RNA sequence: UUGAAAAAAAAUUAAAAAAAUUGAAAAAAUAUACUAAUGGCGCACCGUGGAUGUGGUGCGCCAUUACUAGUUUAACUAGUAAUGGCACACUAUCCCCUGGUGCGCCAUUACUAGUUUUUAAAAAAAAUAAAAAAAUCUUGUU
Numbered sequence: 001u002u003g004a005a006a007a008a009a010a011a012u013u014a015a016a017a018a019a020a021u022u023g024a025a026a027a028a029a030u031a032u033a034c035u036a037a038u039g040g041c042g043c044a045c046c047g048u049g050g051a052u053g054u055g056g057u058g059c060g061c062c063a064u065u066a067c068u069a070g071u072u073u074a075a076c077u078a079g080u081a082a083u084g085g086c087a088c089a090c091u092a093u094c095c096c097c098u099g100g101u102g103c104g105c106c107a108u109u110a111c112u113a114g115u116u117u118u119u120a121a122a123a124a125a126a127a128u129a130a131a132a133a134a135a136u137c138u139u140g141u142u
Base pairs, nucleotide, nucleotide: 036109037108038107040105041104042103043102044101045100046099047098049095050094051093052092057089058088060086061085062084066080068078069077070076
Description
This 142-nucleotide RNA sequence belongs to the Rfam family "Bacteroidete tryptophan peptide leader RNA". The base pairs follow the family's consensus structure, which is taken from published work. Rfam links the family to the GO terms regulation of gene expression and S-adenosylmethionine metabolic process.